[Rfam]
RNA sequence: GACAAUAGCAUAUUGGUUAACUCAUGGGUGGUUGGCGCACCCCGAAAGGGGGUGAUGCCGAUGACAGUUGCAGAAGGAUUGAUGCUUAUGAUUAGUUUCGGAGCGUUAAUUGUUGCGAUUAUGUCAGAUAAAAAUAACAAAAAAUAAAACCCACCCUUGAGUUAGCGGCUCAUUAAUAGGGUGGAAUAUCCUUAAGUGCCAGCCCCCUUGAAGGGAACCAAGCUAUUGUAUAGGCUGAAGGUGUUAGCGCACCUUCA
Number, nucleotide and partner (000 for none) at each position: 001g000002a229003c228004a227005a226006u000007a224008g223009c222010a000011u220012a000013u202014u201015g200016g199017u198018u000019a000020a000021c161022u160023c159024a158025u000026g156027g155028g154029u000030g151031g150032u149033u148034g000035g000036c000037g000038c054039a053040c052041c051042c050043c049044g000045a000046a000047a000048g000049g043050g042051g041052g040053u039054g038055a000056u000057g000058c000059c000060g000061a000062u000063g125064a124065c123066a122067g000068u000069u000070g000071c000072a000073g000074a000075a000076g000077g000078a089079u000080u000081g000082a000083u000084g000085c000086u000087u000088a000089u078090g000091a000092u000093u000094a000095g000096u000097u000098u000099c117100g116101g000102a114103g000104c000105g000106u000107u000108a000109a000110u000111u000112g000113u000114u102115g000116c100117g099118a000119u000120u000121a000122u066123g065124u064125c063126a000127g000128a000129u000130a000131a000132a000133a000134a000135u000136a000137a000138c000139a000140a000141a000142a000143a000144a000145u000146a000147a000148a033149a032150c031151c030152c000153a000154c028155c027156c026157u000158u024159g023160a022161g021162u000163u000164a000165g000166c000167g000168g000169c000170u000171c000172a187173u186174u000175a000176a000177u000178a000179g000180g000181g000182u000183g000184g000185a000186a173187u172188a000189u000190c000191c000192u000193u000194a000195a000196g000197u000198g017199c016200c015201a014202g013203c000204c215205c214206c213207c000208u000209u000210g000211a000212a000213g206214g205215g204216a000217a000218c000219c000220a011221a000222g009223c008224u007225a000226u005227u004228g003229u002230a000231u000232a000233g000234g000235c000236u257237g256238a255239a254240g253241g252242u251243g250244u249245u000246a000247g000248c000249g244250c243251a242252c241253c240254u239255u238256c237257a236